[Rfam]
RNA sequence: AAACCGCCCCCUAAGUUUCGGAACUAUAGCAGUUUUGGCCCCCCAAGGCCAAAAUAAAAUAAAAUAAUAACACGUGGCACCUCACUUAGGGUGCCACGUCAGCGUAGACCGAGUCAAUAUUAGCCUUCGGGGCCAAAACUGCUACAGGUGCAAAACUUAGAGGGCGGUUU
Numbered sequence: 001a002a003a004c005c006g007c008c009c010c011c012u013a014a015g016u017u018u019c020g021g022a023a024c025u026a027u028a029g030c031a032g033u034u035u036u037g038g039c040c041c042c043c044c045a046a047g048g049c050c051a052a053a054a055u056a057a058a059a060u061a062a063a064a065u066a067a068u069a070a071c072a073c074g075u076g077g078c079a080c081c082u083c084a085c086u087u088a089g090g091g092u093g094c095c096a097c098g099u100c101a102g103c104g105u106a107g108a109c110c111g112a113g114u115c116a117a118u119a120u121u122a123g124c125c126u127u128c129g130g131g132g133c134c135a136a137a138a139c140u141g142c143u144a145c146a147g148g149u150g151c152a153a154a155a156c157u158u159a160g161a162g163g164g165c166g167g168u169u170u
Base pairs, nucleotide, nucleotide: 001170002169004167005166006165007164008163012159013158014157015156016155017154018153020151022149024147025146027144028143029142030141031140032139033138034137035136036135037134038133039132040131041130042129045127046126072099073098075096076095077094078093079092080091081090